The record is a 138-nucleotide RNA sequence from Neolamprologus brichardi, which matches "Small nucleolar RNA SNORA29" in Rfam. Its family is annotated with RNA processing and nucleolus in the Gene Ontology. By type it is an H/ACA-box small nucleolar RNA. The family is grouped with related families in Rfam's "SNORA20 clan". About the family: ACA29 is a member of the H/ACA class of snoRNA that guide the sites of modification of uridines to pseudouridines. The organism belongs to Neolamprologus, within Eukaryota.
RNA sequence: AAUCCCAUUUUAGUACCGUCCACUCGCACUGCAAUGAAUGGAGGGUUAUGCUAAUGGGAUAGAAAAACUCUGUCAUGGUCUGAAGGUGUGGCGAGCUGAAUGUGCGCCUCUCUGAAUGAAAUGACAGCAUAUCCCUCU
Numbered sequence: 001a002a003u004c005c006c007a008u009u010u011u012a013g014u015a016c017c018g019u020c021c022a023c024u025c026g027c028a029c030u031g032c033a034a035u036g037a038a039u040g041g042a043g044g045g046u047u048a049u050g051c052u053a054a055u056g057g058g059a060u061a062g063a064a065a066a067a068c069u070c071u072g073u074c075a076u077g078g079u080c081u082g083a084a085g086g087u088g089u090g091g092c093g094a095g096c097u098g099a100a101u102g103u104g105c106g107c108c109u110c111u112c113u114g115a116a117u118g119a120a121a122u123g124a125c126a127g128c129a130u131a132u133c134c135c136u137c138u
Base pairs, nucleotide, nucleotide: 004058005057006056007055016045017044019042072125073124074123075122090113091112094111